[Rfam]
RNA sequence: CCGUGCCGGGGUGGGCAGGCCCUGAGGCCGACUAACCCUAAUGGCGACUGCCUCCCUCACGCCCGCCCGCUGUUUUACUCGCUGACUUUCAGAGGGCGAAGGGAGCGGCCCUGGGGGGCGGAGGGAGAAAAGGGGUUCGGCGUCAAAAAACGUCAGCGAGGGGGAUCUUCACCCCGGCCCACACUGGGGUCCCUCUCCCGCAGCCCGGGGUGCUCCCGCCGUCGCCCCGCGCGGAGGCCGCGGUCGGCCGGCUCAGCGCCACUGCCACCGCGAAGAGCUCGUCUCUGUCAGCCUCGGCGACGGCCGAGACCCGGAGCACCGGGCCGCCCACACUGGGCGGCCGAGGGACCCCAGCAGAACAAAACGGGCGCGGCGCCGCCGGGCUGAGCAGCCGCGGCUCCCUCAGACGUGGGAUGCGCGGCCAGCGCCGCGCCGACACCC
Dot-bracket structure: ....(((((((((((..(.((((.............................(((((......(((((.(((........[[[[[[[[[))).))))).)))))...........................................]]].]]]]]]...)))).).))))))))))).....(((((((..................((((((((.(((((((..(((.........(((((..(((.(((.....)))...))).))))).((((.....))))........))))))))))........))))))))...........................))))))).............(((((((((...............(((((..((((........))))..)))))...)))))))))........
The record is a 441-nucleotide RNA sequence from Climacteris rufus, which matches "Vertebrate telomerase RNA" in Rfam.
It scores 146 bits against the family's covariance model.
It is annotated as a non-coding RNA gene.
Its Rfam clan is "Telomerase clan".
The base pairs follow the family's consensus structure, which is taken from published work.
NCBI's taxonomy places the organism under Eukaryota, Eumetazoa, Dinosauria, Australaves, Climacteris.
From the family's description: Telomerase is a ribonucleoprotein reverse transcriptase that synthesises telomeric DNA. Telomerase RNAs differ greatly in sequence and structure between vertebrates, ciliates and yeasts, but they share a 5' pseudoknot structure close to the template sequence. Vertebrate telomerase RNAs have a 3' H/ACA snoRNA-like domain.